[Rfam]
RNA: c-di-GMP-I riboswitch aptamer
RNA sequence: UCAGCGAAAGGGCAAAGCCGGUGCGAACCGGUGACGCAAAGCCACGGAACCCUCGAGGUUCGCCGGGCUACCGAA
Numbered sequence: 001u002c003a004g005c006g007a008a009a010g011g012g013c014a015a016a017g018c019c020g021g022u023g024c025g026a027a028c029c030g031g032u033g034a035c036g037c038a039a040a041g042c043c044a045c046g047g048a049a050c051c052c053u054c055g056a057g058g059u060u061c062g063c064c065g066g067g068c069u070a071c072c073g074a075a
Base pairs, nucleotide, nucleotide: 012037013036017032018031019030020029021028022027040069041068042067043066045065046064047063048060049059050058